[Rfam]
RNA: Small nucleolar RNA SNORA71
Organism: Poecilia formosa
RNA sequence: UCCUGUAUCGAAAGUGAUCAUGGCAUGUGUGUUGCCAGGUCAUUGAUACUACAGGUACAUCAACCUGGGAGCAUUUCCCGUGUUUGAAGGACUUCCUGUUCCUCUUGAACCCUGGCGCUACCAUACA
Numbered sequence: 001u002c003c004u005g006u007a008u009c010g011a012a013a014g015u016g017a018u019c020a021u022g023g024c025a026u027g028u029g030u031g032u033u034g035c036c037a038g039g040u041c042a043u044u045g046a047u048a049c050u051a052c053a054g055g056u057a058c059a060u061c062a063a064c065c066u067g068g069g070a071g072c073a074u075u076u077c078c079c080g081u082g083u084u085u086g087a088a089g090g091a092c093u094u095c096c097u098g099u100u101c102c103u104c105u106u107g108a109a110c111c112c113u114g115g116c117g118c119u120a121c122c123a124u125a126c127a
Stems, first nucleotide, its partner, number of pairs: 002055006013044007022036004066123003070119003082110005088103004